[Rfam]
tpke11: a 77-nucleotide RNA from a Plautia stali symbiont. Lineage of the source: Bacteria > Pseudomonadati > Gammaproteobacteria > Enterobacterales > Enterobacteriaceae. The family's consensus secondary structure was predicted with WAR. In Yersinia located in ICR upstream dnaJ (chaperone)gene. Has temperature responsive RNA structure. On this family, see Rivas et al., Curr Biol 2001: "Computational identification of noncoding RNAs in E. coli by comparative genomics".
RNA sequence: GACAGCCGUUGAAACCAGCACGGGCGUCGGAGAUCUCUCCACGCCCGUGCGAUCAUGUUAAGGGCAGAGAAAAAUGG
Numbered sequence: 001g002a003c004a005g006c007c008g009u010u011g012a013a014a015c016c017a018g019c020a021c022g023g024g025c026g027u028c029g030g031a032g033a034u035c036u037c038u039c040c041a042c043g044c045c046c047g048u049g050c051g052a053u054c055a056u057g058u059u060a061a062g063g064g065c066a067g068a069g070a071a072a073a074a075u076g077g
Base pairs, nucleotide, nucleotide: 005015018050019049020048021047022046023045024044025043026042029039030038